[Rfam]
RNA sequence: GGGAGAGCGUGGCCGGCUGGUGCCGCCCCGGGACUUCAAAUCCCGUGGAGGGUCGCUCCGGCGAUCCUCGGAGGGUUCGAUUCCCUUGCUCUCCC
Numbered sequence: 001g002g003g004a005g006a007g008c009g010u011g012g013c014c015g016g017c018u019g020g021u022g023c024c025g026c027c028c029c030g031g032g033a034c035u036u037c038a039a040a041u042c043c044c045g046u047g048g049a050g051g052g053u054c055g056c057u058c059c060g061g062c063g064a065u066c067c068u069c070g071g072a073g074g075g076u077u078c079g080a081u082u083c084c085c086u087u088g089c090u091c092u093c094c095c
Base pairs, nucleotide, nucleotide: 001095002094003093004092005091006090007089008088009087012027014025015024016023017022029045030044031043032042033041048069049068050067051066052065053064054063072086073085074084075083
Description:
The family of this 95-nucleotide RNA from Thermocrinis albus is "Selenocysteine transfer RNA". A reference for the family is Mizutani and Goto (2000), "Eukaryotic selenocysteine tRNA has the 9/4 secondary structure", FEBS Lett.